RNA sequence: AGUUAGGUAAAACUGACUUAUGCUGUCCCAACAGCGUAGCGACUAGAACUCGCAUUGGACUUCUAACAAAGGAGAAAACAAAUG
Numbered sequence: 001a002g003u004u005a006g007g008u009a010a011a012a013c014u015g016a017c018u019u020a021u022g023c024u025g026u027c028c029c030a031a032c033a034g035c036g037u038a039g040c041g042a043c044u045a046g047a048a049c050u051c052g053c054a055u056u057g058g059a060c061u062u063c064u065a066a067c068a069a070a071g072g073a074g075a076a077a078a079c080a081a082a083u084g
Stems, first nucleotide, its partner, number of pairs: 001018006019038007039053004
RNA: freshwater-2 RNA